[Rfam]
Shown here is a 73-nucleotide RNA sequence from Natranaerobius trueperi, a member of the family "Group II catalytic intron D1-D4-1". It scores 36 bits against the family's covariance model. Gene Ontology term of the family: Group II intron splicing. Lineage of the source: Bacteria > Bacillota > Clostridia > Natranaerobiaceae > Natranaerobius.
RNA sequence: UAAGCAUGGUCGAGAGACUAUGUUGAACAGCAGACGUCAUAGUACUUGGUAGCUUAAGAUAUAAAAGAAGGAC
Dot-bracket structure: ((.((((((((....))))))))))..(....)..(((.......((.((..........)).)).....)))